This 286-nucleotide sequence belongs to the Rfam family "Group I catalytic intron". For this family Rfam cites "Self-splicing of group I introns" (Cech, Annu Rev Biochem, 1990). Its family is annotated with Group I intron splicing in the Gene Ontology. The family's consensus secondary structure is taken from published work.
[Rfam]
RNA sequence: AUGGGCAGUUUUUCUAAAAGAACUCCUUACUUGAAAAAGUAAGUGUAUAAUUAAACUAUAUGCUGGGAUCUCCGUUUCUAAUCGAUUACUCUCUGAUUUUGCCCAAAAUCAAGCCCGGAGAUGUCGAAAGAAUGUAGAGAUUAUCGUACUUUAAAGUCAUAAUUGAUAAACGCGGACAAUCAGCAAGGAUGUAGAGCCUUCAACGACUAAAUGUUUGAUAUCCGAGAUAUUGCUGCACCUGGCGAUUUGGAUAAAGUUAUAGUCUGUUCAAUAUUGCGAAGUAUUG
Numbered sequence: 001a002u003g004g005g006c007a008g009u010u011u012u013u014c015u016a017a018a019a020g021a022a023c024u025c026c027u028u029a030c031u032u033g034a035a036a037a038a039g040u041a042a043g044u045g046u047a048u049a050a051u052u053a054a055a056c057u058a059u060a061u062g063c064u065g066g067g068a069u070c071u072c073c074g075u076u077u078c079u080a081a082u083c084g085a086u087u088a089c090u091c092u093c094u095g096a097u098u099u100u101g102c103c104c105a106a107a108a109u110c111a112a113g114c115c116c117g118g119a120g121a122u123g124u125c126g127a128a129a130g131a132a133u134g135u136a137g138a139g140a141u142u143a144u145c146g147u148a149c150u151u152u153a154a155a156g157u158c159a160u161a162a163u164u165g166a167u168a169a170a171c172g173c174g175g176a177c178a179a180u181c182a183g184c185a186a187g188g189a190u191g192u193a194g195a196g197c198c199u200u201c202a203a204c205g206a207c208u209a210a211a212u213g214u215u216u217g218a219u220a221u222c223c224g225a226g227a228u229a230u231u232g233c234u235g236c237a238c239c240u241g242g243c244g245a246u247u248u249g250g251a252u253a254a255a256g257u258u259a260u261a262g263u264c265u266g267u268u269c270a271a272u273a274u275u276g277c278g279a280a281g282u283a284u285u286g
Stems, first nucleotide, its partner, number of pairs: 005025001009021005029040003050219005056213001061185006071176005186199002203265001205264005221251006271284005
The family has 12 seed sequences and 5,602 matches in Rfam 15.1.